[Rfam]
RNA sequence: UGUGUUGCACACCCUGUAGCUGCUUAGGGGCGCAGUGUUACUUCCUCCCCUGUGCUGCUACAUUGUAUGUGACUAUG
Numbered sequence: 001u002g003u004g005u006u007g008c009a010c011a012c013c014c015u016g017u018a019g020c021u022g023c024u025u026a027g028g029g030g031c032g033c034a035g036u037g038u039u040a041c042u043u044c045c046u047c048c049c050c051u052g053u054g055c056u057g058c059u060a061c062a063u064u065g066u067a068u069g070u071g072a073c074u075a076u077g
Stems, first nucleotide, its partner, number of pairs: 001075002004073006011066002015062006022055002026051005032045001034043002
This 77-nucleotide RNA sequence from Parnassius apollo belongs to the Rfam family "mir-2756 microRNA precursor family".
The family has 2 seed sequences and 31 matches in Rfam 15.1.
The family's consensus secondary structure was predicted with RNAalifold.
The organism belongs to Parnassius, within Eukaryota.
It scores 64 bits against the family's covariance model.